[Rfam]
RNA sequence: GUUCGUUAAGAACAGCUGCCGAAGACAGCAGGUACAUCAAAGAUGUGUAAGUGUGAACGCCUGCCGAGGGAUGUAAUUAUUUUUAAGAAUAUUACGGUCUGAACUCUAGCAGUUUCAGGUCUUUUUUUAUCGUAAU
Numbered sequence: 001g002u003u004c005g006u007u008a009a010g011a012a013c014a015g016c017u018g019c020c021g022a023a024g025a026c027a028g029c030a031g032g033u034a035c036a037u038c039a040a041a042g043a044u045g046u047g048u049a050a051g052u053g054u055g056a057a058c059g060c061c062u063g064c065c066g067a068g069g070g071a072u073g074u075a076a077u078u079a080u081u082u083u084u085a086a087g088a089a090u091a092u093u094a095c096g097g098u099c100u101g102a103a104c105u106c107u108a109g110c111a112g113u114u115u116c117a118g119g120u121c122u123u124u125u126u127u128u129a130u131c132g133u134a135a136u
Base pairs, nucleotide, nucleotide: 028064029063030062031061032060033059034046035045036044096121097120098119099118100117101116102115103114105112
Shown here is a 136-nucleotide RNA sequence from Catonella morbi, a member of the family "Ribosomal protein L10 leader".
It is annotated as a cis-regulatory leader.
Pairs were carried over by alignment from the consensus structure, which was predicted with CMfinder.
Taxonomically the source falls in Catonella morbi (Bacteria, Bacillati, Clostridia, Lachnospirales).
Rfam's curators write: This family is a putative r-protein leader autoregulatory structure found in B. subtilis and other low-GC Gram-positive bacteria.
A search with the family's covariance model found it, with a score of 59 bits.
Rfam links the family to the GO term regulation of gene expression.
The literature on the family includes a 1994 paper in Prog Nucleic Acid Res Mol Biol by Zengel and Lindahl, "Diverse mechanisms for regulating ribosomal protein synthesis in Escherichia coli".